[Rfam]
Nucleotides: 104
Base pairs, nucleotide, nucleotide: 008091010089011056012055013054014053017031018030019029020028021027038050039049040048041047060085061084062083063082066079067078068077069076
Number, partner (000 for none) and nucleotide at each position: 001000a002000a003000u004000a005000u006000g007000g008091a009000a010089u011056a012055g013054g014053g015000g016000a017031g018030c019029u020028a021027g022000a023000g024000u025000a026000a027021c028020u029019g030018g031017c032000u033000g034000a035000g036000a037000g038050g039049g040048a041047c042000a043000a044000u045000a046000a047041g048040u049039c050038c051000g052000a053014c054013c055012c056011u057000u058000a059000a060085c061084c062083u063082g064000a065000u066079c067078u068077g069076g070000g071000u072000a073000a074000u075000g076069c077068c078067a079066g080000c081000g082063u083062a084061g085060g086000g087000a088000g089010g090000a091008u092000a093000g094000a095000u096000a097000a098000a099000a100000a101000a102000a103000a104000a

TPP riboswitch aptamer (THI element): a 104-nucleotide RNA from Desulfosporosinus orientis.
Rfam links the family to the GO term thiamine pyrophosphate binding.
The base pairs follow the family's consensus structure, which is taken from published work.
The organism belongs to Desulfosporosinus orientis, within Bacteria.